[Rfam]
RNA sequence: CGUACCGGCUCUGGAGAGCGGUCGCCGCGCGCGGCCCACCGAAGGGGAGAACCGCGACGCGGUUUAAUCUCUCAGGUUUCAGGACAGAGGGGUGGUC
Numbered sequence: 001c002g003u004a005c006c007g008g009c010u011c012u013g014g015a016g017a018g019c020g021g022u023c024g025c026c027g028c029g030c031g032c033g034g035c036c037c038a039c040c041g042a043a044g045g046g047g048a049g050a051a052c053c054g055c056g057a058c059g060c061g062g063u064u065u066a067a068u069c070u071c072u073c074a075g076g077u078u079u080c081a082g083g084a085c086a087g088a089g090g091g092g093u094g095g096u097c
Stems, first nucleotide, its partner, number of pairs: 006092001009089005020036004038077003041073002045071003051064001
Dot-bracket structure: .....(..(((((......((((.........)))).(((((..(((...(............)....))))).))).......)))))..).....